[Rfam]
RNA sequence: AAAAUCCAGUUAUGGAAGGAUAAGCUACUUCCACUAUAUAGCGAGUUUUGUGCUGCUGAAGGUAGCAACAGUAGUAAAGCGUAGACAGUGAAACAUUCGAGCAGAAACCAAAUGGUGAACGUGAUAGCCCUGAAAGUAAGAUGUAGUUGGAAGCCGAUAUAUUCUACUACAUAGUAGGCAAAAGAAGAUUGGAGGUUAAACUAGUGAAAAUCCAAAAGUCUUCAACCACCGGGGGCG
Numbered sequence: 001a002a003a004a005u006c007c008a009g010u011u012a013u014g015g016a017a018g019g020a021u022a023a024g025c026u027a028c029u030u031c032c033a034c035u036a037u038a039u040a041g042c043g044a045g046u047u048u049u050g051u052g053c054u055g056c057u058g059a060a061g062g063u064a065g066c067a068a069c070a071g072u073a074g075u076a077a078a079g080c081g082u083a084g085a086c087a088g089u090g091a092a093a094c095a096u097u098c099g100a101g102c103a104g105a106a107a108c109c110a111a112a113u114g115g116u117g118a119a120c121g122u123g124a125u126a127g128c129c130c131u132g133a134a135a136g137u138a139a140g141a142u143g144u145a146g147u148u149g150g151a152a153g154c155c156g157a158u159a160u161a162u163u164c165u166a167c168u169a170c171a172u173a174g175u176a177g178g179c180a181a182a183a184g185a186a187g188a189u190u191g192g193a194g195g196u197u198a199a200a201c202u203a204g205u206g207a208a209a210a211u212c213c214a215a216a217a218g219u220c221u222u223c224a225a226c227c228a229c230c231g232g233g234g235g236c237g
Stems, first nucleotide, its partner, number of pairs: 011038005018032003021027001025206001039091001041089002045086004049081002051076008061066001128234005146229002149227002153179003158173003184223007194213001
Dot-bracket structure: ..........(((((..((((...[.)..))).)))))(.((..((((((((((((((..(....)..))))))))...)).)))).)).)....................................(((((.............((.((..(((..(((..........)))...)))....(((((((...(...........]......)...)))))))..)))))))))...
The record is a 237-nucleotide RNA sequence from Orientia tsutsugamushi, which matches "Group II catalytic intron D1-D4-6" in Rfam. Rfam's curators write: Group II introns are found in rRNA, tRNA and mRNA of organelles in fungi, plants and protists, and also in mRNA in bacteria. The match comes from Rfam's covariance-model search (68 bits). Lineage of the source: Bacteria > Alphaproteobacteria > Rickettsieae > Orientia > Orientia tsutsugamushi. The family has 174 seed sequences and 1,617 matches in Rfam 15.1.